[Rfam]
RNA: TPP riboswitch aptamer (THI element)
Organism: Alteromonadaceae bacterium M269
RNA sequence: GCAAUAACCAAGGGGUGUUUCCACAAUUGGAGACUGAGAUUGGCUUGGCCAGAACCCUUAUACCUGAUCCGGAUAAUACCGGCGUAGGAAUGGUCAUCUUGUCGUGC
Numbered sequence: 001g002c003a004a005u006a007a008c009c010a011a012g013g014g015g016u017g018u019u020u021c022c023a024c025a026a027u028u029g030g031a032g033a034c035u036g037a038g039a040u041u042g043g044c045u046u047g048g049c050c051a052g053a054a055c056c057c058u059u060a061u062a063c064c065u066g067a068u069c070c071g072g073a074u075a076a077u078a079c080c081g082g083c084g085u086a087g088g089a090a091u092g093g094u095c096a097u098c099u100u101g102u103c104g105u106g107c
Stems, first nucleotide, its partner, number of pairs: 007094004011058004016052001017034005041051004063088004069082004
Dot-bracket structure: ......((((((((.((((((........)))))......((((...)))))..))))....((((..((((......))))..))))..)))).............